This 212-nucleotide sequence from Haliscomenobacter hydrossis belongs to the Rfam family "Group I catalytic intron".
Group I catalytic introns are large self-splicing ribozymes.
Lineage of the source: Bacteria > Bacteroidota > Haliscomenobacteraceae > Haliscomenobacter > Haliscomenobacter hydrossis.

[Rfam]
RNA sequence: CGCAGGACUUAAAGCAAUUUGAGUGCUCAAGGGGAAAUCCUUGAUGUAGAAUCCCUCAAAUUCGGGGAAACCUUUUUCCUAAUUCAGUAGGAAUGGCAAUCCCGAGCCAAGUUUCGAUUUUGGUCGAAAAAGGUGUAGAGACUAGAUGGGGGACACCUAAGGAAUUUGCUCUAAGGUGAAGGGAUAGUCCAGACCACAAAUGCUGCUUAGGU
Numbered sequence: 001c002g003c004a005g006g007a008c009u010u011a012a013a014g015c016a017a018u019u020u021g022a023g024u025g026c027u028c029a030a031g032g033g034g035a036a037a038u039c040c041u042u043g044a045u046g047u048a049g050a051a052u053c054c055c056u057c058a059a060a061u062u063c064g065g066g067g068a069a070a071c072c073u074u075u076u077u078c079c080u081a082a083u084u085c086a087g088u089a090g091g092a093a094u095g096g097c098a099a100u101c102c103c104g105a106g107c108c109a110a111g112u113u114u115c116g117a118u119u120u121u122g123g124u125c126g127a128a129a130a131a132g133g134u135g136u137a138g139a140g141a142c143u144a145g146a147u148g149g150g151g152g153a154c155a156c157c158u159a160a161g162g163a164a165u166u167u168g169c170u171c172u173a174a175g176g177u178g179a180a181g182g183g184a185u186a187g188u189c190c191a192g193a194c195c196a197c198a199a200a201u202g203c204u205g206c207u208u209a210g211g212u
Stems, first nucleotide, its partner, number of pairs: 005026001007024007030041003052153004057148002062105006071096002074093004106134002112128003138190001140189005156176003160172003200212001